Eukaryotic large subunit ribosomal RNA: a 522-nucleotide part of an RNA from Parascaris univalens. The base pairs follow the family's consensus structure, which is taken from published work. The organism belongs to Parascaris, within Eukaryota.

RNA sequence: UAGAAUAAUGUAGGUAAGGGAAGUCGGCAAAUUAGAUCCGUAACUUCGGGAAAAGGAUUGGCUCUAAGGACUGGGCCGGUCGGGCUGCAGUGUGAAGUGAGCUCGGUUUGAUCCAUGCAGUGCAACGCUCGGAAACGGGUGGCGCUCGGCUAGCGUUCGAACUGUCUUAUGGACCGCUGCAGCUGUGUACCGCGUCAAUAAUGGCGUUGGUGCUUCGGCGGGCGCUAAACAGUCGACUUAGAACUGGUGCGGACCAGGGGAAUCCGACUGUUUAAUUAAAACAAAGCAUCGCGAAGGCCCGCGGCGGGUGUUGACGCGAUGUGAUUUCUGCCCAGUGCUCUGAAUGUAAAAGUGAAGAAAUUCAACCAAGCGCGGGUAAACGGCGGGAGUAACUAUGACUCUCUUAAGGUAGCCAAAUGCCUCGUCAUCUAAUUAAUGACGCGCAUGAAUGGAUUAACGAGAUUCCCACUGUCCCUAUCUACUAUCUAGCGAAACCACAGCCAAGGGAACGGGCUUGGCGAA
Numbered sequence: 001u002a003g004a005a006u007a008a009u010g011u012a013g014g015u016a017a018g019g020g021a022a023g024u025c026g027g028c029a030a031a032u033u034a035g036a037u038c039c040g041u042a043a044c045u046u047c048g049g050g051a052a053a054a055g056g057a058u059u060g061g062c063u064c065u066a067a068g069g070a071c072u073g074g075g076c077c078g079g080u081c082g083g084g085c086u087g088c089a090g091u092g093u094g095a096a097g098u099g100a101g102c103u104c105g106g107u108u109u110g111a112u113c114c115a116u117g118c119a120g121u122g123c124a125a126c127g128c129u130c131g132g133a134a135a136c137g138g139g140u141g142g143c144g145c146u147c148g149g150c151u152a153g154c155g156u157u158c159g160a161a162c163u164g165u166c167u168u169a170u171g172g173a174c175c176g177c178u179g180c181a182g183c184u185g186u187g188u189a190c191c192g193c194g195u196c197a198a199u200a201a202u203g204g205c206g207u208u209g210g211u212g213c214u215u216c217g218g219c220g221g222g223c224g225c226u227a228a229a230c231a232g233u234c235g236a237c238u239u240a241g242a243a244c245u246g247g248u249g250c251g252g253a254c255c256a257g258g259g260g261a262a263u264c265c266g267a268c269u270g271u272u273u274a275a276u277u278a279a280a281a282c283a284a285a286g287c288a289u290c291g292c293g294a295a296g297g298c299c300c301g302c303g304g305c306g307g308g309u310g311u312u313g314a315c316g317c318g319a320u321g322u323g324a325u326u327u328c329u330g331c332c333c334a335g336u337g338c339u340c341u342g343a344a345u346g347u348a349a350a351a352g353u354g355a356a357g358a359a360a361u362u363c364a365a366c367c368a369a370g371c372g373c374g375g376g377u378a379a380a381c382g383g384c385g386g387g388a389g390u391a392a393c394u395a396u397g398a399c400u401c402u403c404u405u406a407a408g409g410u411a412g413c414c415a416a417a418u419g420c421c422u423c424g425u426c427a428u429c430u431a432a433u434u435a436a437u438g439a440c441g442c443g444c445a446u447g448a449a450u451g452g453a454u455u456a457a458c459g460a461g462a463u464u465c466c467c468a469c470u471g472u473c474c475c476u477a478u479c480u481a482c483u484a485u486c487u488a489g490c491g492a493a494a495c496c497a498c499a500g501c502c503a504a505g506g507g508a509a510c511g512g513g514c515u516u517g518g519c520g521a522a
Base pairs, nucleotide, nucleotide: 001488002487003486004485010482011481012480013479014478015477016476018474019473020472035059036058037057038056039055044049060245061244063242064241065240066239067238068237069234070233071232072231073230075223076222077221079219080218081217082216083215084183085182086181088179089178090177091176097170098169099168100167104164105163106162107161108160109159110158111157113155114153117150118149120147122145123144126141127140128139129138130137131136246250258467259466260465261464262463263462264461265459266458269283270282271281286322287321288320289319290318291317292316293315295311297309298308299307300306326453327452328451330384331383332382335381336380337377338376339375340374342373345372346371347370353364354363355362356361385403386402387401388400389399390398404408424440425439426438427437428436501518502517503516504515505514